[Rfam]
RNA sequence: GGUCUCAUGGUGUAAUGGUUAGCACUUUGGACUCUGAAUCCAACAAUCCGAGUUCGAGUCUCGGUGAGACCU
Number, nucleotide and partner (000 for none) at each position: 001g071002g070003u069004c068005u067006c066007a065008u000009g000010g025011u024012g023013u022014a000015a000016u000017g000018g000019u000020u000021a000022g013023c012024a011025c010026u000027u043028u042029g041030g040031a039032c000033u000034c000035u000036g000037a000038a000039u031040c030041c029042a028043a027044c000045a000046a000047u000048c064049c063050g062051a061052g060053u000054u000055c000056g000057a000058g000059u000060c052061u051062c050063g049064g048065u007066g006067a005068g004069a003070c002071c001072u000